[Rfam]
RNA sequence: CCCCCAGGGGGAAGCGAAGACCCUAUAGAGCUUUACUGCAGGCUGUCGCUGGGACACGGUCGCUGAUGUGCAGCAUAGGUAGGAGCCGUCACACAGGUACCUGCGCUAGCAGGCCACCGAGGCAGCAGUGAAAUACUACCCGUCAGUGACUGUGACCCUCACUCCGGGAGGAGGACACCGGUAGCCGGGCAGUUUGACUGGGGCGGUACACGCUCGAAAAGAUAUCGAGCGUGCCCAAAGGAUACCUCAUUCGGGUCGGAGACCCGGAAAAGAGUGCAAGAGCAUAAGGUAUCCUGACAGUGUCCGGCAUAACGACGGACGCUGACGCGAAAGCGUGGUCUAGCGAACCAAUGAGCCUGCUUGAUGCGGGCCAUUGAUGACAGAAAAGCUACCUUAGGGAUAACAGAGUCGUCACUCGCAAGAGCACAUAUCGACCGAGUGGCUUGCUACCUCGAUGUCGGUUCCCUCCAUCCUGCCCGUGCAGAAGCGGGCAAGGGUGAGGUUGUUCGCCUAUUAAAGGAGGUCGUGAGCUGGGUUUAGACCGUCGUGAGACAGGUCGGCUGCUAUCUACUGGGGGUGCUA
Numbered sequence: 001c002c003c004c005c006a007g008g009g010g011g012a013a014g015c016g017a018a019g020a021c022c023c024u025a026u027a028g029a030g031c032u033u034u035a036c037u038g039c040a041g042g043c044u045g046u047c048g049c050u051g052g053g054a055c056a057c058g059g060u061c062g063c064u065g066a067u068g069u070g071c072a073g074c075a076u077a078g079g080u081a082g083g084a085g086c087c088g089u090c091a092c093a094c095a096g097g098u099a100c101c102u103g104c105g106c107u108a109g110c111a112g113g114c115c116a117c118c119g120a121g122g123c124a125g126c127a128g129u130g131a132a133a134u135a136c137u138a139c140c141c142g143u144c145a146g147u148g149a150c151u152g153u154g155a156c157c158c159u160c161a162c163u164c165c166g167g168g169a170g171g172a173g174g175a176c177a178c179c180g181g182u183a184g185c186c187g188g189g190c191a192g193u194u195u196g197a198c199u200g201g202g203g204c205g206g207u208a209c210a211c212g213c214u215c216g217a218a219a220a221g222a223u224a225u226c227g228a229g230c231g232u233g234c235c236c237a238a239a240g241g242a243u244a245c246c247u248c249a250u251u252c253g254g255g256u257c258g259g260a261g262a263c264c265c266g267g268a269a270a271a272g273a274g275u276g277c278a279a280g281a282g283c284a285u286a287a288g289g290u291a292u293c294c295u296g297a298c299a300g301u302g303u304c305c306g307g308c309a310u311a312a313c314g315a316c317g318g319a320c321g322c323u324g325a326c327g328c329g330a331a332a333g334c335g336u337g338g339u340c341u342a343g344c345g346a347a348c349c350a351a352u353g354a355g356c357c358u359g360c361u362u363g364a365u366g367c368g369g370g371c372c373a374u375u376g377a378u379g380a381c382a383g384a385a386a387a388g389c390u391a392c393c394u395u396a397g398g399g400a401u402a403a404c405a406g407a408g409u410c411g412u413c414a415c416u417c418g419c420a421a422g423a424g425c426a427c428a429u430a431u432c433g434a435c436c437g438a439g440u441g442g443c444u445u446g447c448u449a450c451c452u453c454g455a456u457g458u459c460g461g462u463u464c465c466c467u468c469c470a471u472c473c474u475g476c477c478c479g480u481g482c483a484g485a486a487g488c489g490g491g492c493a494a495g496g497g498u499g500a501g502g503u504u505g506u507u508c509g510c511c512u513a514u515u516a517a518a519g520g521a522g523g524u525c526g527u528g529a530g531c532u533g534g535g536u537u538u539a540g541a542c543c544g545u546c547g548u549g550a551g552a553c554a555g556g557u558c559g560g561c562u563g564c565u566a567u568c569u570a571c572u573g574g575g576g577g578u579g580c581u582a
Stems, first nucleotide, its partner, number of pairs: 001577007010569003014564002022398004027394002029390005035193004042185007051158003055154014078140005085123003100113005162173004196209001197207003210232006235338002241293006247273002250268006274283002298324009326335001328333001349376005355371005407448003411445001412442007422432002459534001460532004464526001465523005472497002476491005500512004540558004544553003
RNA: Archaeal large subunit ribosomal RNA, nucleotides 2086 to 2667
Organism: Halodesulfurarchaeum formicicum